The family of this 85-nucleotide RNA sequence from Aureispira anguillae is "SAM riboswitch aptamer (S box leader)". The organism belongs to Aureispira, within Bacteria. The base pairs follow the family's consensus structure, which is taken from published work. Its family is annotated with regulation of gene expression in the Gene Ontology.
RNA sequence: UACUUAUCGAGAAAGGUGGAGGGACUUGCCCUUAGAAGCCUUGGCAACCUGCUUUAGUAAGGUGCUAACUCAAGACAGAUAAGUU
Numbered sequence: 001u002a003c004u005u006a007u008c009g010a011g012a013a014a015g016g017u018g019g020a021g022g023g024a025c026u027u028g029c030c031c032u033u034a035g036a037a038g039c040c041u042u043g044g045c046a047a048c049c050u051g052c053u054u055u056a057g058u059a060a061g062g063u064g065c066u067a068a069c070u071c072a073a074g075a076c077a078g079a080u081a082a083g084u085u
Base pairs, nucleotide, nucleotide: 002084003083004082005081006080007079008078013042014041015040016039017038021031022030023029025074026073027072028071043066044065045064046063048062049061050059051058052057070077
Dot-bracket structure: .(((((((....(((((...(((.[[[[)))......)))))((((.(((((....))).))))))...(]]]]..)))))))).